[Rfam]
RNA sequence: ACAAACUGAAAAUUAUUUCAGUUGUUACUGUUGACUGGAGUAAAAUAACUGUGCCGACAGUAAAUGGUACACAUUUAGCUCAUUGUCAGUCAAUGUGGCUUGCAAUGAAACCCAUGUACCAACAAUU
Numbered sequence: 001a002c003a004a005a006c007u008g009a010a011a012a013u014u015a016u017u018u019c020a021g022u023u024g025u026u027a028c029u030g031u032u033g034a035c036u037g038g039a040g041u042a043a044a045a046u047a048a049c050u051g052u053g054c055c056g057a058c059a060g061u062a063a064a065u066g067g068u069a070c071a072c073a074u075u076u077a078g079c080u081c082a083u084u085g086u087c088a089g090u091c092a093a094u095g096u097g098g099c100u101u102g103c104a105a106u107g108a109a110a111c112c113c114a115u116g117u118a119c120c121a122a123c124a125a126u127u
Stems, first nucleotide, its partner, number of pairs: 005052002008049001010046001013043004021035004066120001068118004074114001080108005085099003

Small nucleolar RNA ACA64: a 127-nucleotide RNA sequence from Danionella cerebrum. A reference for the family is Schattner et al. (2006), "A computational screen for mammalian pseudouridylation guide H/ACA RNAs", RNA. Pairs were carried over by alignment from the consensus structure, which was predicted with WAR. Rfam links the family to the GO terms RNA processing and nucleolus.